[Rfam]
RNA sequence: UCUUCAAUUCGCACACUCUCUCACCGGUAAGAGAGGCGAGAGAGUUUAAGAAAUGAAGAGA
Numbered sequence: 001u002c003u004u005c006a007a008u009u010c011g012c013a014c015a016c017u018c019u020c021u022c023a024c025c026g027g028u029a030a031g032a033g034a035g036g037c038g039a040g041a042g043a044g045u046u047u048a049a050g051a052a053a054u055g056a057a058g059a060g061a
Base pairs, nucleotide, nucleotide: 001059002058003057004056005055006054010050013047015045016044017043019041020040021039022038
The family of this 61-nucleotide sequence from Pristionchus pacificus is "mir-8364 microRNA precursor family". NCBI's taxonomy places the organism under Eukaryota, Eumetazoa, Rhabditida, Diplogasteroidea, Pristionchus. The family has 13 seed sequences and 3,320 matches in Rfam 15.1.